[Rfam]
This 67-nucleotide RNA from Pipistrellus kuhlii belongs to the Rfam family "mir-9256 microRNA precursor family".
The base pairs follow the family's consensus structure, which was predicted with RNAalifold.
Lineage of the source: Eukaryota > Chordata > Vertebrata > Gnathostomata > Pipistrellus.
Gene Ontology terms of the family: miRNA-mediated post-transcriptional gene silencing and RISC complex.
RNA sequence: AUUUACACUGAGUGGCCAGUUUAUUAUGUAUUCAUAGAUCAUAAUAAUCUGGCCACUCAGUGUAUGU
Dot-bracket structure: ...((((((((((((((.(.((((((((...........)))))))).).))))))))))))))...